[Rfam]
Nucleotides: 105
Base pairs, nucleotide, nucleotide: 007058008057009056010055011054012053015048016047020045021044022042023039025037026036027035028034059078060077061076062075063074064073065072066071080100082103086098087097088096
Number, partner (000 for none) and nucleotide at each position: 001000a002000u003000c004000a005000u006000u007058g008057u009056u010055u011054u012053c013000u014000a015048g016047g017000g018000u019000u020045c021044c022042g023039c024000a025037g026036c027035a028034u029000c030000a031000u032000u033000g034028a035027u036026g037025c038000c039023g040000g041000u042022c043000a044021g045020g046000u047016c048015c049000g050000a051000g052000a053012g054011a055010a056009g057008a058007c059078g060077c061076a062075c063074g064073g065072u066071c067000a068000a069000g070000c071066g072065g073064c074063c075062g076061u077060g078059u079000c080100c081000a082103c083000g084000g085000a086098g087097g088096g089000a090000u091000a092000a093000a094000a095000g096088c097087c098086c099000g100080g101000g102000a103082g104000g105000a